[Rfam]
RNA sequence: AUUAUGUGGAGGCUGUGACCACCGAAAAAACAGGGCGGAACCGAAAAGCCUUACGAGUAGGACAACC
Numbered sequence: 001a002u003u004a005u006g007u008g009g010a011g012g013c014u015g016u017g018a019c020c021a022c023c024g025a026a027a028a029a030a031c032a033g034g035g036c037g038g039a040a041c042c043g044a045a046a047a048g049c050c051u052u053a054c055g056a057g058u059a060g061g062a063c064a065a066c067c
Stems, first nucleotide, its partner, number of pairs: 006022004034050003041061002